This 94-nucleotide sequence from Cebus imitator belongs to the Rfam family "Y RNA". On this family, see Teunissen et al., Nucleic Acids Res 2000: "Conserved features of Y RNAs: a comparison of experimentally derived secondary structures". It is annotated as a non-coding RNA gene. A search with the family's covariance model found it, with a score of 45 bits.

RNA sequence: AGCUGGUCUGAUGGUAGUGGGCUAUCAGAAUUUAUUAAUAUUAGUGUCACUAAAGUUGGUAUAACUCUCCACUGCUAAAUUUAACUGGCAUAAA
Numbered sequence: 001a002g003c004u005g006g007u008c009u010g011a012u013g014g015u016a017g018u019g020g021g022c023u024a025u026c027a028g029a030a031u032u033u034a035u036u037a038a039u040a041u042u043a044g045u046g047u048c049a050c051u052a053a054a055g056u057u058g059g060u061a062u063a064a065c066u067c068u069c070c071a072c073u074g075c076u077a078a079a080u081u082u083a084a085c086u087g088g089c090a091u092a093a094a
Stems, first nucleotide, its partner, number of pairs: 002089006010082002015077001016073006033061003037057002